This 186-nucleotide RNA from Lachnospiraceae bacterium 3-1 belongs to the Rfam family "Clostridiales-1 RNA".

[Rfam]
RNA sequence: UAAAAGUAAAGCCGAAUGUAUGGGGAAAUCUAUGCCUGCAUAAGGGUUUUCCCAUACAUUUGGCGCGCCACCAUAAUGAUGCAAUAACAUAAAUAAGCAUAUUGCUUAUUUAUGUUGGCGAUUAGCCCGGAUUGCGAAUGUAGGUGGCGAUUGCAAGAGUGCGGAGCACGGAGCAAUCGACUUUUA
Numbered sequence: 001u002a003a004a005a006g007u008a009a010a011g012c013c014g015a016a017u018g019u020a021u022g023g024g025g026a027a028a029u030c031u032a033u034g035c036c037u038g039c040a041u042a043a044g045g046g047u048u049u050u051c052c053c054a055u056a057c058a059u060u061u062g063g064c065g066c067g068c069c070a071c072c073a074u075a076a077u078g079a080u081g082c083a084a085u086a087a088c089a090u091a092a093a094u095a096a097g098c099a100u101a102u103u104g105c106u107u108a109u110u111u112a113u114g115u116u117g118g119c120g121a122u123u124a125g126c127c128c129g130g131a132u133u134g135c136g137a138a139u140g141u142a143g144g145u146g147g148c149g150a151u152u153g154c155a156a157g158a159g160u161g162c163g164g165a166g167c168a169c170g171g172a173g174c175a176a177u178c179g180a181c182u183u184u185u186a
Base pairs, nucleotide, nucleotide: 001186002185003184004183005182006181007180011064012063013062016059017058018057019056020055021054022053023052024051025050026049027048028047029046030045031042032041033040034039070145071144072143076139077138081135082134083133084132148179149178150177151176152175153174154173159169160168161167162166
It is annotated as a small RNA. NCBI's taxonomy places the organism under Bacteria, Bacillati, Clostridia, Lachnospirales, Lachnospiraceae.